Rfam assigns this 163-nucleotide part of an RNA from Culex quinquefasciatus to the family "Eukaryotic large subunit ribosomal RNA". Its family is annotated with ribosome and structural constituent of ribosome in the Gene Ontology.

[Rfam]
RNA sequence: GAUAACUGGCUUGUGGCCGCCAAGCGUUCAUAGCGACGUGGCUUUUUGAUCCUUCGAUGUCGGCUCUUCCUAUCAUUGUGAAGCAAAAUUCACAAAGCGUAGGAUUGUUCACCCUUUCAAGGGAACGUGAGCUGGGUUUAGACCGUCGUGAGACAGGUUAGUU
Numbered sequence: 001g002a003u004a005a006c007u008g009g010c011u012u013g014u015g016g017c018c019g020c021c022a023a024g025c026g027u028u029c030a031u032a033g034c035g036a037c038g039u040g041g042c043u044u045u046u047u048g049a050u051c052c053u054u055c056g057a058u059g060u061c062g063g064c065u066c067u068u069c070c071u072a073u074c075a076u077u078g079u080g081a082a083g084c085a086a087a088a089u090u091c092a093c094a095a096a097g098c099g100u101a102g103g104a105u106u107g108u109u110c111a112c113c114c115u116u117u118c119a120a121g122g123g124a125a126c127g128u129g130a131g132c133u134g135g136g137u138u139u140a141g142a143c144c145g146u147c148g149u150g151a152g153a154c155a156g157g158u159u160a161g162u163u
Stems, first nucleotide, its partner, number of pairs: 009050001011048001013047001015043006024034002061135001062133004066127001067124005074099001077094006101115003105111001141159004145154003